[Rfam]
RNA sequence: AACGUGCUCCGGGGUCGGUGAAAUUCCGAACCGGCGGUGACAGUCCGCGACCCGAGGUGCCCUUGGCACCACGGCUGAGCCGGUGGAAUUCCGGUACCGACAGUAAAGUCUGGAUGGGAGAAGCACGUA
Numbered sequence: 001a002a003c004g005u006g007c008u009c010c011g012g013g014g015u016c017g018g019u020g021a022a023a024u025u026c027c028g029a030a031c032c033g034g035c036g037g038u039g040a041c042a043g044u045c046c047g048c049g050a051c052c053c054g055a056g057g058u059g060c061c062c063u064u065g066g067c068a069c070c071a072c073g074g075c076u077g078a079g080c081c082g083g084u085g086g087a088a089u090u091c092c093g094g095u096a097c098c099g100a101c102a103g104u105a106a107a108g109u110c111u112g113g114a115u116g117g118g119a120g121a122a123g124c125a126c127g128u129a
Stems, first nucleotide, its partner, number of pairs: 002128007009120001016028003030109002032099002034048004043097002052074002079095005101112003
Source information
The record is a 129-nucleotide sequence from Zafaria cholistanensis, which matches "FMN riboswitch aptamer (RFN element)" in Rfam. The organism belongs to Zafaria, within Bacteria. The match comes from Rfam's covariance-model search (101 bits).